[Rfam]
RNA sequence: AUGCUGGGUAGCUCAGGGGAUACUUCAACUCUGUCACCGGAUGUCUAAUCUCCCAGUCCACAAGCCAGAGGUUCGAACCCCGGGCGCAGUCCAACGUUUUU
Numbered sequence: 001a002u003g004c005u006g007g008g009u010a011g012c013u014c015a016g017g018g019g020a021u022a023c024u025u026c027a028a029c030u031c032u033g034u035c036a037c038c039g040g041a042u043g044u045c046u047a048a049u050c051u052c053c054c055a056g057u058c059c060a061c062a063a064g065c066c067a068g069a070g071g072u073u074c075g076a077a078c079c080c081c082g083g084g085c086g087c088a089g090u091c092c093a094a095c096g097u098u099u100u101u
Stems, first nucleotide, its partner, number of pairs: 002096002005093003011085004016081004024077003028073001
Annotation
The record is a 101-nucleotide RNA from Denticeps clupeoides, which matches "Vault RNA" in Rfam.